[Rfam]
RNA sequence: AGAGGCCCUCUGCAGCCGGGGCGGAAUGCUUGCCUUGUCGCUGUGGCAACGAAGCAAGCAUUCUGCCAGGCCGCUCAUGCUGCCCAC
Numbered sequence: 001a002g003a004g005g006c007c008c009u010c011u012g013c014a015g016c017c018g019g020g021g022c023g024g025a026a027u028g029c030u031u032g033c034c035u036u037g038u039c040g041c042u043g044u045g046g047c048a049a050c051g052a053a054g055c056a057a058g059c060a061u062u063c064u065g066c067c068a069g070g071c072c073g074c075u076c077a078u079g080c081u082g083c084c085c086a087c
Stems, first nucleotide, its partner, number of pairs: 004084003012074002015071003020067014037050002040047002
Rfam assigns this 87-nucleotide RNA from Cnephaeus nilssonii to the family "mir-9195 microRNA precursor family". The family has 3 seed sequences and 438 matches in Rfam 15.1. The base pairs follow the family's consensus structure, which was predicted with RNAalifold. The source organism's lineage runs through Eukaryota, Gnathostomata, Euteleostomi, Amniota and Cnephaeus. The match comes from Rfam's covariance-model search (96 bits).